[Rfam]
RNA: Purine riboswitch aptamer
Organism: Fictibacillus macauensis
RNA sequence: AUCGUGAGUUCUAUAUUUAUUCGUAUAAUAUCGGGGAUAUGGCCCGAAAGUUUCUACCAGACUGCCGUAAAUGGUCUGACUACGAAGGUGCAUGGACAUUUA
Numbered sequence: 001a002u003c004g005u006g007a008g009u010u011c012u013a014u015a016u017u018u019a020u021u022c023g024u025a026u027a028a029u030a031u032c033g034g035g036g037a038u039a040u041g042g043c044c045c046g047a048a049a050g051u052u053u054c055u056a057c058c059a060g061a062c063u064g065c066c067g068u069a070a071a072u073g074g075u076c077u078g079a080c081u082a083c084g085a086a087g088g089u090g091c092a093u094g095g096a097c098a099u100u101u102a
Stems, first nucleotide, its partner, number of pairs: 018088001020086006029049001031047005058078007